Rfam assigns this 103-nucleotide RNA from Methylococcus sp. EFPC2 to the family "traJ-II RNA". It scores 61 bits against the family's covariance model.
RNA sequence: GGGCAGGAUAUGCGAAGUACAGGUACCGGCAAUCCGGUCCCAGUCCUUCGCGCCCCUCCUUAUUCGCCCUCCGUGCUCAACGGAACUCCCGCCCUGCGGGGCG
Numbered sequence: 001g002g003g004c005a006g007g008a009u010a011u012g013c014g015a016a017g018u019a020c021a022g023g024u025a026c027c028g029g030c031a032a033u034c035c036g037g038u039c040c041c042a043g044u045c046c047u048u049c050g051c052g053c054c055c056c057u058c059c060u061u062a063u064u065c066g067c068c069c070u071c072c073g074u075g076c077u078c079a080a081c082g083g084a085a086c087u088c089c090c091g092c093c094c095u096g097c098g099g100g101g102c103g
Base pairs, nucleotide, nucleotide: 001094002093003092004091006089007088008087012051013050014049015048016047017046019044020043025038026037027036028035029034057084058083059082066076067075069073